[Rfam]
RNA sequence: ACAGUACAAACUGAGCAGGCGAUGAACCGCCGGAAGAUGGGGGUUCUGGGGCUGGGCCGCCGAGGCGGCAGCGGAUGAUGGGCGACACAUCUGCGGGACAGUG
Numbered sequence: 001a002c003a004g005u006a007c008a009a010a011c012u013g014a015g016c017a018g019g020c021g022a023u024g025a026a027c028c029g030c031c032g033g034a035a036g037a038u039g040g041g042g043g044u045u046c047u048g049g050g051g052c053u054g055g056g057c058c059g060c061c062g063a064g065g066c067g068g069c070a071g072c073g074g075a076u077g078a079u080g081g082g083c084g085a086c087a088c089a090u091c092u093g094c095g096g097g098a099c100a101g102u103g
Base pairs, nucleotide, nucleotide: 010102011101012100013099016097018053019052020051022047024046025045026044027043028042056069057068058067059066060065071094072093073092074091075090076089
RNA: NiCo (Nickel/Cobalt) riboswitch aptamer